[Rfam]
RNA: Bacterial antisense RNA HPnc0260
Organism: Helicobacter hepaticus
RNA sequence: AGUUGUAGAUUAUGUGUAUUGGCAUUAUUGGUUUGAUUUUGCAAUUUUUAACCUUGCUGAUGUGCUCAUUGAUAUAAGUGUGGUGUUGAUGAUUUAUCAAAUGUUACAAGAAAAAAGAAAUGGUGGCCACGACUGGACUUGAACCAGCGACCACUACCA
Dot-bracket structure: .....(.(...((((......))))...).).........................................................................................((((((...((.((((.......)))))).))))))...